[Rfam]
Overview
Rfam assigns this 155-nucleotide RNA from Sulfitobacter sp. JL08 to the family "Ruegeria cis2 sRNA". On this family, see Rivers et al., Front Microbiol 2016: "Experimental Identification of Small Non-Coding RNAs in the Model Marine Bacterium Ruegeria pomeroyi DSS-3". It is annotated as a small RNA. Gene Ontology term of the family: regulation of gene expression. The match comes from Rfam's covariance-model search (87 bits).
RNA sequence: ACGGACGUGUAUCGGGGGUUGUAGUUGAUAAAUGCAAAUCCGCGCGAUUGAUCGAUGCAAUGAAACAGCGGGUUCCAGUCAAACAGGUUCAACAUGAAUGUUGGUAAAGAGUUGGCCACAAACAUCUUGCCCGACGCGAUCAUGUUCGCGCGCUG
Numbered sequence: 001a002c003g004g005a006c007g008u009g010u011a012u013c014g015g016g017g018g019u020u021g022u023a024g025u026u027g028a029u030a031a032a033u034g035c036a037a038a039u040c041c042g043c044g045c046g047a048u049u050g051a052u053c054g055a056u057g058c059a060a061u062g063a064a065a066c067a068g069c070g071g072g073u074u075c076c077a078g079u080c081a082a083a084c085a086g087g088u089u090c091a092a093c094a095u096g097a098a099u100g101u102u103g104g105u106a107a108a109g110a111g112u113u114g115g116c117c118a119c120a121a122a123c124a125u126c127u128u129g130c131c132c133g134a135c136g137c138g139a140u141c142a143u144g145u146u147c148g149c150g151c152g153c154u155g
Stems, first nucleotide, its partner, number of pairs: 004035001006034003011029005039059001041057002043054002066155005072084003089148001091146006102133003105129003109125001112121003